About this RNA: This 112-nucleotide RNA belongs to the Rfam family "Plastid-psbA-1 3UTR RNA". By type it is a cis-regulatory element. About the family: Plastid psbA-1 is a non-coding RNA (ncRNA) present in plastids. It was identified in inverted repeat sequences in the 3 prime untranslate region (3UTR) of photosystem II quinone-binding protein (psbA).
RNA sequence: UCGAAGCUUCAUCCAAAAAUGGAUAAGAUCGUGGUCUAAGUGUAUAUGAGUUUUUGAAAUAAAAGGAGCAAUAACCCCCUUCUUGUUCUAUCAAGAAGGCGUUAUUGUUUCG
Numbered sequence: 001u002c003g004a005a006g007c008u009u010c011a012u013c014c015a016a017a018a019a020u021g022g023a024u025a026a027g028a029u030c031g032u033g034g035u036c037u038a039a040g041u042g043u044a045u046a047u048g049a050g051u052u053u054u055u056g057a058a059a060u061a062a063a064a065g066g067a068g069c070a071a072u073a074a075c076c077c078c079c080u081u082c083u084u085g086u087u088c089u090a091u092c093a094a095g096a097a098g099g100c101g102u103u104a105u106u107g108u109u110u111c112g
Base pairs, nucleotide, nucleotide: 008023009022010021011020012019065111066110067109068108069107070106071105072104073103074102077099078098081096082095083094084093